[Rfam]
Record summary:
The record is an 85-nucleotide RNA from Nannospalax galili, which matches "mir-3473 microRNA precursor family" in Rfam. A search with the family's covariance model found it, with a score of 72 bits. Taxonomically the source falls in Nannospalax (Eukaryota, Metazoa, Eumetazoa, Glires).
Nucleotides: 085
Stems, first nucleotide, its partner, number of pairs: 002084011014072014
Number, partner (000 for none) and nucleotide at each position: 001000a002084c003083u004082g005081c006080u007079g008078a009077g010076c011075c012074a013000g014072c015071u016070c017069u018068c019067c020066a021065g022064c023063c024062c025061c026060u027059a028000u029000u030000u031000a032000u033000u034000u035000a036000u037000u038000u039000u040000u041000u042000u043000u044000a045000a046000a047000a048000a049000a050000a051000u052000a053000c054000u055000u056000a057000u058000u059027u060026g061025g062024g063023g064022g065021c066020u067019g068018g069017a070016g071015a072014g073000a074012u075011g076010g077009c078008u079007c080006a081005g082004c083003a084002g085000u